[Rfam]
RNA sequence: GUCAUCAAGGGAUGAAAUAUGGAAAUUAAUCUUAGGACACCUUCCUACACAGUUGUUUAUUGGCUGUGGAUGAGAAAGACAUUUCUAUUCUGAUGAUGAG
Numbered sequence: 001g002u003c004a005u006c007a008a009g010g011g012a013u014g015a016a017a018u019a020u021g022g023a024a025a026u027u028a029a030u031c032u033u034a035g036g037a038c039a040c041c042u043u044c045c046u047a048c049a050c051a052g053u054u055g056u057u058u059a060u061u062g063g064c065u066g067u068g069g070a071u072g073a074g075a076a077a078g079a080c081a082u083u084u085c086u087a088u089u090c091u092g093a094u095g096a097u098g099a100g
Stems, first nucleotide, its partner, number of pairs: 002099006045052002